Archaeal large subunit ribosomal RNA: a 449-nucleotide part of an RNA from Halovenus carboxidivorans.
[Rfam]
RNA sequence: CCGACCGAAACAUGUCGAAGCAUGACCUCCGCCGAGGUAGUCUGUGAGGUAGAGUGACUGAUUGCCGUGUCCGCCCUCGAGAGAGGUCGGCGCGGCUGUCAAACUCCGAACUCACGGACGCUUUUGACGCGGGGAGUCCGGUGCGCGGGGUAAGCCUGUGUACCAUAAGGGAGACAACCCAGCGCCGGGUUAAGGUCCCAAAGUGUGGAUUAAGUGCGAUCGAAGGUUGUCUCGAGCCCUAAACAGCCGGGAGGUGAGCUUAGAAGCAGCUACCCUCUAAGAAAAGCGUAACAGCUUACCGGCCGAGGUUCGAGGCGCCCAAAAUGAUCGGGGCUCAAAUCCACCACCGAUACCUGGCCACACCCGUCACAGGGUGGUUGCGUAGGUCGGCGCUCCGCGUGGGUGGAAGUACGGGCGAGAGCUCGUAUGGACCGCGUGGUGACGCAAAU
Numbered sequence: 001c002c003g004a005c006c007g008a009a010a011c012a013u014g015u016c017g018a019a020g021c022a023u024g025a026c027c028u029c030c031g032c033c034g035a036g037g038u039a040g041u042c043u044g045u046g047a048g049g050u051a052g053a054g055u056g057a058c059u060g061a062u063u064g065c066c067g068u069g070u071c072c073g074c075c076c077u078c079g080a081g082a083g084a085g086g087u088c089g090g091c092g093c094g095g096c097u098g099u100c101a102a103a104c105u106c107c108g109a110a111c112u113c114a115c116g117g118a119c120g121c122u123u124u125u126g127a128c129g130c131g132g133g134g135a136g137u138c139c140g141g142u143g144c145g146c147g148g149g150g151u152a153a154g155c156c157u158g159u160g161u162a163c164c165a166u167a168a169g170g171g172a173g174a175c176a177a178c179c180c181a182g183c184g185c186c187g188g189g190u191u192a193a194g195g196u197c198c199c200a201a202a203g204u205g206u207g208g209a210u211u212a213a214g215u216g217c218g219a220u221c222g223a224a225g226g227u228u229g230u231c232u233c234g235a236g237c238c239c240u241a242a243a244c245a246g247c248c249g250g251g252a253g254g255u256g257a258g259c260u261u262a263g264a265a266g267c268a269g270c271u272a273c274c275c276u277c278u279a280a281g282a283a284a285a286g287c288g289u290a291a292c293a294g295c296u297u298a299c300c301g302g303c304c305g306a307g308g309u310u311c312g313a314g315g316c317g318c319c320c321a322a323a324a325u326g327a328u329c330g331g332g333g334c335u336c337a338a339a340u341c342c343a344c345c346a347c348c349g350a351u352a353c354c355u356g357g358c359c360a361c362a363c364c365c366g367u368c369a370c371a372g373g374g375u376g377g378u379u380g381c382g383u384a385g386g387u388c389g390g391c392g393c394u395c396c397g398c399g400u401g402g403g404u405g406g407a408a409g410u411a412c413g414g415g416c417g418a419g420a421g422c423u424c425g426u427a428u429g430g431a432c433c434g435c436g437u438g439g440u441g442a443c444g445c446a447a448a449u
Stems, first nucleotide, its partner, number of pairs: 001390006011024005026136001027134006036122003040119008052107001053105002060100003064096006073088001075086004140164009169180003184358007194348003203345001205344006225319003229316010246303005252276003257271003277281001282297001286295002359380002361376005391444001393441001395439008409428008
It scores 2836 bits against the family's covariance model.